[Rfam]
RNA: Plastid-rps12 3UTR RNA
RNA sequence: GGUUUCCGUUGGUGCAAAUUCAAUCGAACCCAUUUGAGAUGAGAAUAAAUUCCUCAUUGGUAUCAAAAAGUUAUCCAUUAAGCAGAGGAAACAGC
Numbered sequence: 001g002g003u004u005u006c007c008g009u010u011g012g013u014g015c016a017a018a019u020u021c022a023a024u025c026g027a028a029c030c031c032a033u034u035u036g037a038g039a040u041g042a043g044a045a046u047a048a049a050u051u052c053c054u055c056a057u058u059g060g061u062a063u064c065a066a067a068a069a070g071u072u073a074u075c076c077a078u079u080a081a082g083c084a085g086a087g088g089a090a091a092c093a094g095c
Stems, first nucleotide, its partner, number of pairs: 009023004052087001054085001056078002059075004064070001